[Rfam]
Nucleotides: 100
Stems, first nucleotide, its partner, number of pairs: 007038001010035007017027003074091004079086002
Number, partner (000 for none) and nucleotide at each position: 001000u002000a003000g004000a005000u006000u007038g008000g009000u010035g011034u012033u013032g014031g015030u016029g017027a018026c019025c020000c021000g022000c023000u024000c025019g026018g027017u028000a029016u030015g031014c032013c033012g034011a035010u036000c037000g038007c039000a040000c041000a042000c043000g044000u045000u046000a047000u048000g049000g050000c051000c052000u053000c054000g055000g056000g057000c058000a059000u060000g061000g062000g063000g064000g065000g066000c067000a068000u069000c070000c071000g072000u073000a074091c075090c076089g077088c078000u079086g080085g081000a082000g083000a084000u085080c086079u087000g088077g089076u090075g091074g092000c093000c094000c095000g096000g097000a098000u099000g100000c
Rfam assigns this 100-nucleotide RNA from a Peptococcaceae bacterium to the family "Pyrrolysine insertion sequence mtbB". For this family Rfam cites "Effects of using coding potential, sequence conservation and mRNA structure conservation for predicting pyrroly-sine containing genes" (Theil Have et al., BMC Bioinformatics, 2013). The family's RNA type in Rfam is cis-regulatory element. The base pairs follow the family's consensus structure, which was predicted with WAR. NCBI's taxonomy places the organism under Bacteria, Bacillota, Clostridia, Eubacteriales, Peptococcaceae.